The family of this 79-nucleotide sequence from Python bivittatus is "mir-19 microRNA precursor family".
Lineage of the source: Eukaryota > Bilateria > Sauropsida > Pythonidae > Python.
The base pairs follow the family's consensus structure, which was predicted with RNAalifold.
The literature on the family includes a 2001 paper in Science by Lagos-Quintana et al., "Identification of novel genes coding for small expressed RNAs".
[Rfam]
RNA sequence: ACCUACGGUGGGUUUUGCUGGUUUGCAUCUCAGCUUGGCGUCUGUUGCUGUGCAAAUCCAUGCAAAACUGACUGUGGUG
Numbered sequence: 001a002c003c004u005a006c007g008g009u010g011g012g013u014u015u016u017g018c019u020g021g022u023u024u025g026c027a028u029c030u031c032a033g034c035u036u037g038g039c040g041u042c043u044g045u046u047g048c049u050g051u052g053c054a055a056a057u058c059c060a061u062g063c064a065a066a067a068c069u070g071a072c073u074g075u076g077g078u079g
Stems, first nucleotide, its partner, number of pairs: 003077007011069008020059002022056007032049003